[Rfam]
RNA sequence: CGAAUCCACGCGGGAGAGUUCCCUGCCGCGCACAGUGUGCGGGUCGCCGGGGCGCCGAAGGAGCAAGUCCUCCCUUGAAUCUCUCAGGCACCGAUACCGCGCAGGAUGA
Numbered sequence: 001c002g003a004a005u006c007c008a009c010g011c012g013g014g015a016g017a018g019u020u021c022c023c024u025g026c027c028g029c030g031c032a033c034a035g036u037g038u039g040c041g042g043g044u045c046g047c048c049g050g051g052g053c054g055c056c057g058a059a060g061g062a063g064c065a066a067g068u069c070c071u072c073c074c075u076u077g078a079a080u081c082u083c084u085c086a087g088g089c090a091c092c093g094a095u096a097c098c099g100c101g102c103a104g105g106a107u108g109a
Stems, first nucleotide, its partner, number of pairs: 006104001009101005020052004054089003057085002061083003067076001
Dot-bracket structure: .....(..(((((......((((.........................)))).(((((..(((...(........)....))))).))).......)))))..).....
The record is a 109-nucleotide RNA from Streptomyces abyssalis, which matches "Glycine riboswitch aptamer" in Rfam. It scores 60 bits against the family's covariance model. Taxonomically the source falls in Streptomyces (Bacteria, Bacillati, Actinomycetes, Kitasatosporales). The base pairs follow the family's consensus structure.